[Rfam]
RNA sequence: AAGAAAUAGGGGUUCCUUGCAGCCCAAAGCAUGCAUAAUAUUUGGGAAAAAAGGGGGAAAAGGAGCCCUGAUUUGCAUCUAUAUAUACAUAGAUUGUGUGGCUUUGGACUGAAGGGAGCUCCUACUUCUU
Number, nucleotide and partner (000 for none) at each position: 001a000002a000003g000004a000005a000006a000007u124008a123009g122010g121011g120012g119013u118014u117015c116016c115017u114018u113019g000020c000021a110022g109023c000024c107025c106026a105027a104028a103029g102030c101031a000032u000033g000034c000035a000036u000037a000038a000039u000040a000041u000042u000043u000044g000045g000046g000047a000048a000049a000050a000051a000052a000053g000054g000055g000056g000057g000058a000059a000060a000061a000062g000063g000064a000065g000066c000067c000068c000069u000070g000071a000072u000073u000074u000075g000076c000077a000078u000079c000080u000081a000082u000083a000084u000085a000086u000087a000088c000089a000090u000091a000092g000093a000094u000095u000096g000097u000098g000099u000100g000101g030102c029103u028104u027105u026106g025107g024108a000109c022110u021111g000112a000113a018114g017115g016116g015117a014118g013119c012120u011121c010122c009123u008124a007125c000126u000127u000128c000129u000130u000
RNA: MIR319 microRNA precursor family